A member of the RNA family "mir-393 microRNA precursor family" from Gossypium raimondii, 138 nucleotides long.

[Rfam]
RNA sequence: GAUGGAAAAUUCCGAAGGGAUCGCAUGAUCCAAUGAGUACUGAACUGAAUCAACAAAAAUCAAUAAUCAAUUCGUCAAGGUUUUCAAGGAAGCCCAUCAUCGACAUUAGAUCAAUGCGAUCCCUUUGGAGCUCUCCAC
Numbered sequence: 001g002a003u004g005g006a007a008a009a010u011u012c013c014g015a016a017g018g019g020a021u022c023g024c025a026u027g028a029u030c031c032a033a034u035g036a037g038u039a040c041u042g043a044a045c046u047g048a049a050u051c052a053a054c055a056a057a058a059a060u061c062a063a064u065a066a067u068c069a070a071u072u073c074g075u076c077a078a079g080g081u082u083u084u085c086a087a088g089g090a091a092g093c094c095c096a097u098c099a100u101c102g103a104c105a106u107u108a109g110a111u112c113a114a115u116g117c118g119a120u121c122c123c124u125u126u127g128g129a130g131c132u133c134u135c136c137a138c
Base pairs, nucleotide, nucleotide: 003137004136005135006134008132010130011129012128013127014126015125016124017123018122019121020120021119023117024116025115026113027112028111029110030109

Its family is annotated with miRNA-mediated post-transcriptional gene silencing and RISC complex in the Gene Ontology.